The family of this 85-nucleotide RNA from Octopus sinensis is "mir-25 microRNA precursor family". The organism belongs to Octopus, within Eukaryota.

RNA sequence: UUUCGUCGCUUUGAGACCGCGACAUGUUCACUGGUCCUGCACGAAGUUUUGUCAGUGAACAGGUCGCGGUCUGAAAGCGACGAAA
Numbered sequence: 001u002u003u004c005g006u007c008g009c010u011u012u013g014a015g016a017c018c019g020c021g022a023c024a025u026g027u028u029c030a031c032u033g034g035u036c037c038u039g040c041a042c043g044a045a046g047u048u049u050u051g052u053c054a055g056u057g058a059a060c061a062g063g064u065c066g067c068g069g070u071c072u073g074a075a076a077g078c079g080a081c082g083a084a085a
Stems, first nucleotide, its partner, number of pairs: 001085004006080004014072004019067005028058005034053001036051001037046002